[Rfam]
RNA: mir-1000 microRNA precursor family
RNA sequence: CUCGGCCAUAUUGUCCUGUCACAGCAGUAAGUUCAAUCUACUGCUGUAGCCGGACAUGCCGGUUGAG
Numbered sequence: 001c002u003c004g005g006c007c008a009u010a011u012u013g014u015c016c017u018g019u020c021a022c023a024g025c026a027g028u029a030a031g032u033u034c035a036a037u038c039u040a041c042u043g044c045u046g047u048a049g050c051c052g053g054a055c056a057u058g059c060c061g062g063u064u065g066a067g
Base pairs, nucleotide, nucleotide: 003065004064005063006062012056013055014054015053016052018050022046023045024044025043026042027041028040029039